[Rfam]
RNA sequence: CCGUGCUAGAUGGGGAGGUAGCGGUGCCCUGUAACUCGCAAUCCGCUGUAGCGAGGUUGAAUUCCUGUUUUAGGUUUUGUCGAUGUGAGGCUGGUAUCUGAAUACGGUGUUGACGGCUGGGUCCUUCGCAAAGGACUGCUGUGAAUCUGGUCAGGUUCGGAAGAAAGCAGCCAUAAGCAGUUUUGUUCUUGUGCCGAAGGAGUGCCUAUCCUGAGUCGUGGUUCAGAAAAACCGCUUGGAUCGCAAUAAUCGAUAACAGGUGCACGG
Numbered sequence: 001c002c003g004u005g006c007u008a009g010a011u012g013g014g015g016a017g018g019u020a021g022c023g024g025u026g027c028c029c030u031g032u033a034a035c036u037c038g039c040a041a042u043c044c045g046c047u048g049u050a051g052c053g054a055g056g057u058u059g060a061a062u063u064c065c066u067g068u069u070u071u072a073g074g075u076u077u078u079g080u081c082g083a084u085g086u087g088a089g090g091c092u093g094g095u096a097u098c099u100g101a102a103u104a105c106g107g108u109g110u111u112g113a114c115g116g117c118u119g120g121g122u123c124c125u126u127c128g129c130a131a132a133g134g135a136c137u138g139c140u141g142u143g144a145a146u147c148u149g150g151u152c153a154g155g156u157u158c159g160g161a162a163g164a165a166a167g168c169a170g171c172c173a174u175a176a177g178c179a180g181u182u183u184u185g186u187u188c189u190u191g192u193g194c195c196g197a198a199g200g201a202g203u204g205c206c207u208a209u210c211c212u213g214a215g216u217c218g219u220g221g222u223u224c225a226g227a228a229a230a231a232c233c234g235c236u237u238g239g240a241u242c243g244c245a246a247u248a249a250u251c252g253a254u255a256a257c258a259g260g261u262g263c264a265c266g267g
Base pairs, nucleotide, nucleotide: 001267002266003265004264005263006262009058010057011056012030013029014028015027017025019023035055036054037053038052039051064260065259066258067257068256069255073251074250075249076248081243082242083241084240086238087237088236089235093233094232097227098226099225100224101223104222105221106217107216108215115211116210118208119207120206121205122204123200124199125198126197127196128195129191130190132189133188134187135186136185138181139180140179141178142177148173149172150171151170156165157164158163